Acido-Lenti-1 RNA: a 45-nucleotide sequence from Candidatus Thiodictyon syntrophicum. The family's RNA type in Rfam is small RNA. The family's consensus secondary structure is taken from published work. The source organism's lineage runs through Bacteria, Gammaproteobacteria, Chromatiales, Chromatiaceae and Thiodictyon.
RNA sequence: CCCAGGGCGCUGCCCUGGGCUGGUAUGUAACGCCCCUUUGGGGCU
Dot-bracket structure: ((((((((...))))))))............(((((...))))).